[Rfam]
RNA sequence: AGGAUAGCAUCAUUAUAAUGAGCUAUACCAUAAUAAAAAUAAAAUUAGUUUCUGCUCAAAGCCGUGGGGUCUGAGACAGAGGU
Dot-bracket structure: .(((((((.((........))))))).))......................(((((((..(((....))).)))).)))....
Numbered sequence: 001a002g003g004a005u006a007g008c009a010u011c012a013u014u015a016u017a018a019u020g021a022g023c024u025a026u027a028c029c030a031u032a033a034u035a036a037a038a039a040u041a042a043a044a045u046u047a048g049u050u051u052c053u054g055c056u057c058a059a060a061g062c063c064g065u066g067g068g069g070u071c072u073g074a075g076a077c078a079g080a081g082g083u
Stems, first nucleotide, its partner, number of pairs: 002029002004026005010021002052079003055075004061070003
A member of the RNA family "pan motif" from Alkaliphilus pronyensis, 83 nucleotides long. It is annotated as a cis-regulatory element. The organism belongs to Alkaliphilus, within Bacteria.